[Rfam]
RNA sequence: UGAUACCAGGGUCAAAAGGUCAUAAAUCCGAUGCAAGCUUGCUUGCAGGAGGAUUUUUGAACUUGGGACCCGCCAAAAACAUGAGUAAGAAGCCAUUUUUUGAAGAAAAAUGAGCGGAUUACGAAUGUUUUUAGAAUUGCGAGAGUGCAAAGCACGUAGCAAUUCGGUAUCA
Numbered sequence: 001u002g003a004u005a006c007c008a009g010g011g012u013c014a015a016a017a018g019g020u021c022a023u024a025a026a027u028c029c030g031a032u033g034c035a036a037g038c039u040u041g042c043u044u045g046c047a048g049g050a051g052g053a054u055u056u057u058u059g060a061a062c063u064u065g066g067g068a069c070c071c072g073c074c075a076a077a078a079a080c081a082u083g084a085g086u087a088a089g090a091a092g093c094c095a096u097u098u099u100u101u102g103a104a105g106a107a108a109a110a111u112g113a114g115c116g117g118a119u120u121a122c123g124a125a126u127g128u129u130u131u132u133a134g135a136a137u138u139g140c141g142a143g144a145g146u147g148c149a150a151a152g153c154a155c156g157u158a159g160c161a162a163u164u165c166g167g168u169a170u171c172a
Stems, first nucleotide, its partner, number of pairs: 001172007010070004017063002020060003024056006033046005075132008085122004092115002094112008134165007145155004

The family of this 172-nucleotide RNA is "Clostridiales-1 RNA". By type it is a small RNA.